[Rfam]
Shown here is a 94-nucleotide RNA sequence from Sorghum bicolor, a member of the family "MIR5387 microRNA precursor family".

RNA sequence: UGGUAACACGGACCGAUGCUAAAGGGUCCCUGCCCUGACAACACCUGUCAGUAGCCGUUGGGCAGGACCCUUUAGCACCGGCCCGUGUUAUGAA
Dot-bracket structure: ..(((((((((.(((.(((((((((((.((...((..((.....((...)).....)).))...))))))))))))).))).)))))))))...
Numbered sequence: 001u002g003g004u005a006a007c008a009c010g011g012a013c014c015g016a017u018g019c020u021a022a023a024g025g026g027u028c029c030c031u032g033c034c035c036u037g038a039c040a041a042c043a044c045c046u047g048u049c050a051g052u053a054g055c056c057g058u059u060g061g062g063c064a065g066g067a068c069c070c071u072u073u074a075g076c077a078c079c080g081g082c083c084c085g086u087g088u089u090a091u092g093a094a
Stems, first nucleotide, its partner, number of pairs: 003091009013081003017077011029066002034061002038058002045051002

Rfam 15.1 lists 1,029 matches to the family in 9 species. The family's consensus secondary structure was predicted with RNAalifold.